[Rfam]
RNA: SAM riboswitch aptamer (S box leader)
Organism: Priestia megaterium
RNA sequence: UGCUUAUCAAGAGUGGUGGAGGGAUCUGGCCCGUUGAACCCCGGCAACCUGCUUAGCAAGGUGCUAAUUCCAGCAAAGUGUGUAUCAUUUUGAAAGAUAAGGU
Numbered sequence: 001u002g003c004u005u006a007u008c009a010a011g012a013g014u015g016g017u018g019g020a021g022g023g024a025u026c027u028g029g030c031c032c033g034u035u036g037a038a039c040c041c042c043g044g045c046a047a048c049c050u051g052c053u054u055a056g057c058a059a060g061g062u063g064c065u066a067a068u069u070c071c072a073g074c075a076a077a078g079u080g081u082g083u084a085u086c087a088u089u090u091u092g093a094a095a096g097a098u099a100a101g102g103u
Base pairs, nucleotide, nucleotide: 003101004100005099006098007097008096013042015041016040021032022031023030026073027072028071029070043065044064045063046062048061049060050058051057052056069095074092075091076090077089078088079087